[Rfam]
RNA sequence: UUUGGGAGAUGAUGUCACAAUUUAAGGGAUUUAUCAAAGCAACAGCUAUGCUGAAUUGUUUAUUUGCACGUCAGUCUGAUCCCAAA
Numbered sequence: 001u002u003u004g005g006g007a008g009a010u011g012a013u014g015u016c017a018c019a020a021u022u023u024a025a026g027g028g029a030u031u032u033a034u035c036a037a038a039g040c041a042a043c044a045g046c047u048a049u050g051c052u053g054a055a056u057u058g059u060u061u062a063u064u065u066g067c068a069c070g071u072c073a074g075u076c077u078g079a080u081c082c083c084a085a086a
Stems, first nucleotide, its partner, number of pairs: 001086007

Small nucleolar RNA Z122: an 86-nucleotide RNA sequence from Trema andersonii. Rfam classes the family as a C/D-box small nucleolar RNA. Taxonomically the source falls in Trema (Eukaryota, Tracheophyta, eudicotyledons, rosids). It scores 65 bits against the family's covariance model.